RNA: 6S / SsrS RNA
Organism: Pseudodesulfovibrio sp. JC047
RNA sequence: UUCCCCCUGGGGCGUGCGUGAUGGUCUGGAGUGUUAUUGAGCCAAUACUCUGAAAAAGGGCGCCGACUCCAGUGAGCUGGUGAGCAAGCCCGGUAUAACCGGGAAGCCUAAAGGUUCACGAGUCAUGCCCACCUGGACAUGCCAGGUUCAAAACAAACAGGCCACACGGCUCCCCGGGGAUUUA
Numbered sequence: 001u002u003c004c005c006c007c008u009g010g011g012g013c014g015u016g017c018g019u020g021a022u023g024g025u026c027u028g029g030a031g032u033g034u035u036a037u038u039g040a041g042c043c044a045a046u047a048c049u050c051u052g053a054a055a056a057a058g059g060g061c062g063c064c065g066a067c068u069c070c071a072g073u074g075a076g077c078u079g080g081u082g083a084g085c086a087a088g089c090c091c092g093g094u095a096u097a098a099c100c101g102g103g104a105a106g107c108c109u110a111a112a113g114g115u116u117c118a119c120g121a122g123u124c125a126u127g128c129c130c131a132c133c134u135g136g137a138c139a140u141g142c143c144a145g146g147u148u149c150a151a152a153a154c155a156a157a158c159a160g161g162c163c164a165c166a167c168g169g170c171u172c173c174c175c176g177g178g179g180a181u182u183u184a
Base pairs, nucleotide, nucleotide: 005179006178007177008176009175010174011173012172014170015169017168018167019166033154034153035152038150039149040148041147042146043145058130059129060128062126065124066123067122068121070120072119073118074117075116076115077114078113084107085106089103090102091101092100093099